The family of this 287-nucleotide RNA sequence from Molossus molossus is "Mason-Pfizer monkey virus packaging signal". The source organism's lineage runs through Eukaryota, Deuterostomia, Chordata, Tetrapoda and Molossus.

RNA sequence: UGGCGCCCAACGUGGGGCUCCAGCACGGGGGAUCCAGUGAAGGACGCCGUUCGAGUGACCGGCAGAAAGGAAAGCAAAGGAAAAGAAAGGAAAAGAAAAGAGGGAACAACGUGGGAACCUGCUAUGUCUGCAUCCCUCGGGUAAGUGAACGGCGAUUAUGGGUCAAGCAUUGAGCCAAGAUAAGAUGUUCGUUGAAGGACUAGGAAAGGCUAUCAAGGCACGAGGAGUAAAGAUAAAAAUUAAGCAUUUGUGUCAGUAUUUUGAUUAUAUUAAGGAAGUUUGCCCUU
Numbered sequence: 001u002g003g004c005g006c007c008c009a010a011c012g013u014g015g016g017g018c019u020c021c022a023g024c025a026c027g028g029g030g031g032a033u034c035c036a037g038u039g040a041a042g043g044a045c046g047c048c049g050u051u052c053g054a055g056u057g058a059c060c061g062g063c064a065g066a067a068a069g070g071a072a073a074g075c076a077a078a079g080g081a082a083a084a085g086a087a088a089g090g091a092a093a094a095g096a097a098a099a100g101a102g103g104g105a106a107c108a109a110c111g112u113g114g115g116a117a118c119c120u121g122c123u124a125u126g127u128c129u130g131c132a133u134c135c136c137u138c139g140g141g142u143a144a145g146u147g148a149a150c151g152g153c154g155a156u157u158a159u160g161g162g163u164c165a166a167g168c169a170u171u172g173a174g175c176c177a178a179g180a181u182a183a184g185a186u187g188u189u190c191g192u193u194g195a196a197g198g199a200c201u202a203g204g205a206a207a208g209g210c211u212a213u214c215a216a217g218g219c220a221c222g223a224g225g226a227g228u229a230a231a232g233a234u235a236a237a238a239a240u241u242a243a244g245c246a247u248u249u250g251u252g253u254c255a256g257u258a259u260u261u262u263g264a265u266u267a268u269a270u271u272a273a274g275g276a277a278g279u280u281u282g283c284c285c286u287u
Stems, first nucleotide, its partner, number of pairs: 006031003012026003100138002102135002107130002110126005146165003150162001153160002172213001174210003221263005227257002231249004272287004
Dot-bracket structure: .....(((...(((.........)))..)))....................................................................((((...((.(((((.......)))))..))...)).)).......(((.(..((....)).))))......(.(((...............................)))..).......(((((.((..((((...........))))......)).)))))........((((........))))

The family's RNA type in Rfam is cis-regulatory element. On this family, see Harrison et al., J Virol 1995: "Secondary structure model of the Mason-Pfizer monkey virus 5' leader sequence: identification of a structural motif common to a variety of retroviruses".